[Rfam]
RNA sequence: CUCUUAUCCAGAGCGGCGGAGGGACUGGCCCUACGAAGCCCGGCAACCUGCCCUAACAGGCGUGGUGCCAACACCUGCAACCGAAAGGUUGGGUGAUAAGAG
Number, nucleotide and partner (000 for none) at each position: 001c102002u101003c100004u099005u098006a097007u096008c095009c000010a000011g000012a000013g041014c000015g040016g039017c038018g000019g000020a000021g031022g030023g029024a000025c077026u000027g075028g074029c023030c022031c021032u000033a000034c000035g000036a000037a000038g017039c016040c015041c013042g069043g068044c067045a066046a000047c065048c064049u062050g061051c060052c059053c000054u000055a000056a000057c000058a000059g052060g051061c050062g049063u000064g048065g047066u045067g044068c043069c042070a000071a000072c000073a094074c028075c027076u000077g025078c091079a090080a089081c088082c087083g000084a000085a000086a000087g082088g081089u080090u079091g078092g000093g000094u073095g008096a007097u006098a005099a004100g003101a002102g001